[Rfam]
RNA sequence: UGGCGCCCAACGUGAGAGCUCGAGUACGAGGGACACAGUAAGGGACGCCGUCGAGGUCAGCCGGCACAGAAGGAUUAAGAAAUCUGGAGGAAAGAGCGUCGUGGGAACCUGCCAUGGACUCGCGCUCCGGUAAGCGGACGGCGAAUAUGGGACAGGAAAUCAGCCAGCAUGAGUUCAUAGAGAGUUUAAGAAAGGCUUUAAAGGCGCGGGGAGUAAAGGUGAAAAUAAAACGAUUGUGUAAAUAUUUUGACUAUAUUCAGGAUGUCUGCCCUU
Dot-bracket structure: .....(((...(((..........)))..))).....((.....))......................................(((((....(((...(((((.......)))))..)))...))))).....(.(....((....))...).)....(.((((............................))).).)......(((((.((..((.((.........)).))......)).))))).........(((.(....).))).
Annotation:
Mason-Pfizer monkey virus packaging signal: a 273-nucleotide RNA sequence from Callithrix jacchus. Rfam classes the family as a cis-regulatory element. It scores 112 bits against the family's covariance model. For this family Rfam cites "Mutational analysis of the predicted secondary RNA structure of the Mason-Pfizer monkey virus packaging signal" (Mustafa et al., Virus Res, 2004). About the family: This family represents a group of sequences that are related to the Mason-Pfizer monkey virus (MPMV) packaging signal. The packaging signal is located in the 5' UTR and is required for specific RNA encapsidation. The organism belongs to Callithrix, within Eukaryota.